Rfam assigns this 231-nucleotide part of an RNA from Chloroflexus aurantiacus to the family "Bacterial large subunit ribosomal RNA". Taxonomically the source falls in Chloroflexus aurantiacus (Bacteria, Chloroflexota, Chloroflexia, Chloroflexaceae). Its family is annotated with ribosome and structural constituent of ribosome in the Gene Ontology.

[Rfam]
RNA sequence: GAGUAAUCCUCGGUGGCGUGGUUAAGGCAGAGCCAGCCGGAGCCGGAGUGAACGCGAGCCUGAACAGGGCAUACCGUCGCCGGGGAUUGACCCGAAACCGUGUGAGCUACCCAUGGCCAGGCUGAAGCGUCCCUAACAGGACGUGGAGGGCCGCACCGGUGUCUGUUGCAAAAGGCUCGGAUGAGCUGUGGGUAGGGGUGAAAUGCCAAUCGAACACGGAGAUAGCUGGUU
Numbered sequence: 001g002a003g004u005a006a007u008c009c010u011c012g013g014u015g016g017c018g019u020g021g022u023u024a025a026g027g028c029a030g031a032g033c034c035a036g037c038c039g040g041a042g043c044c045g046g047a048g049u050g051a052a053c054g055c056g057a058g059c060c061u062g063a064a065c066a067g068g069g070c071a072u073a074c075c076g077u078c079g080c081c082g083g084g085g086a087u088u089g090a091c092c093c094g095a096a097a098c099c100g101u102g103u104g105a106g107c108u109a110c111c112c113a114u115g116g117c118c119a120g121g122c123u124g125a126a127g128c129g130u131c132c133c134u135a136a137c138a139g140g141a142c143g144u145g146g147a148g149g150g151c152c153g154c155a156c157c158g159g160u161g162u163c164u165g166u167u168g169c170a171a172a173a174g175g176c177u178c179g180g181a182u183g184a185g186c187u188g189u190g191g192g193u194a195g196g197g198g199u200g201a202a203a204u205g206c207c208a209a210u211c212g213a214a215c216a217c218g219g220a221g222a223u224a225g226c227u228g229g230u231u
Base pairs, nucleotide, nucleotide: 005088006087007086008085009084010083011082012081013080014079015078016077017076020044021043022042023041026038027037028036048055049054058070059069060068061067091229092228094226098219099218100217101216102215103214107195108194109193110192111191112190113189114188115187116186117185118183120152121151122150123149127144128143129142130141131140132139156180157179158178161176162175163174164173197207198206199205